RNA sequence: GGUUGCAAGUUUGAGGCCAUAGUAUAAGUGCUCACAGAUUCUGUUAGAUUCCUAUGAAUCUGCAAAUUCUGCA
Dot-bracket structure: ............[[[.[....(((.((((....)).].]]]...(((((((....)))))))....)).))).
Numbered sequence: 001g002g003u004u005g006c007a008a009g010u011u012u013g014a015g016g017c018c019a020u021a022g023u024a025u026a027a028g029u030g031c032u033c034a035c036a037g038a039u040u041c042u043g044u045u046a047g048a049u050u051c052c053u054a055u056g057a058a059u060c061u062g063c064a065a066a067u068u069c070u071g072c073a
Stems, first nucleotide, its partner, number of pairs: 013041003017037001022072003026068002028035002045062007

Source information:
This 73-nucleotide RNA sequence from Alligator mississippiensis belongs to the Rfam family "Mammalian CPEB3 ribozyme". On this family, see Salehi-Ashtiani et al., Science 2006: "A genomewide search for ribozymes reveals an HDV-like sequence in the human CPEB3 gene".